About this RNA
ASpks TB sRNA: a 75-nucleotide sequence from Streptomyces buecherae. The source organism's lineage runs through Bacteria, Actinomycetota, Actinomycetes, Kitasatosporales and Streptomyces. By type it is an antisense RNA. A search with the family's covariance model found it, with a score of 76 bits. Pairs were carried over by alignment from the consensus structure, which is taken from published work.
RNA sequence: CUUGACGCUUCCCAGCCACAGCGGCUGGUCCGCGGGUCGGUCCUGCCCGUACGUGGCCAUCAGUGCCUGGGCCUC
Numbered sequence: 001c002u003u004g005a006c007g008c009u010u011c012c013c014a015g016c017c018a019c020a021g022c023g024g025c026u027g028g029u030c031c032g033c034g035g036g037u038c039g040g041u042c043c044u045g046c047c048c049g050u051a052c053g054u055g056g057c058c059a060u061c062a063g064u065g066c067c068u069g070g071g072c073c074u075c
Stems, first nucleotide, its partner, number of pairs: 014026004031071001033069001038065002044059002047056003
Dot-bracket structure: .............((((.....))))....(.(....((....((.(((....))).))....))...).)....